[Rfam]
RNA sequence: AGCACAAGUGAUGAAAUACGGACCUUAGGCCGGUGGAGUGGACCGUCUUGGUCAUCUCAGCUCUGCCGGCCAGUGAUAGGCUUGUCAUAGUUACACUGAUGUGCC
Numbered sequence: 001a002g003c004a005c006a007a008g009u010g011a012u013g014a015a016a017u018a019c020g021g022a023c024c025u026u027a028g029g030c031c032g033g034u035g036g037a038g039u040g041g042a043c044c045g046u047c048u049u050g051g052u053c054a055u056c057u058c059a060g061c062u063c064u065g066c067c068g069g070c071c072a073g074u075g076a077u078a079g080g081c082u083u084g085u086c087a088u089a090g091u092u093a094c095a096c097u098g099a100u101g102u103g104c105c
Stems, first nucleotide, its partner, number of pairs: 002104005
RNA: Small nucleolar RNA SNORD46
Organism: Aquarana catesbeiana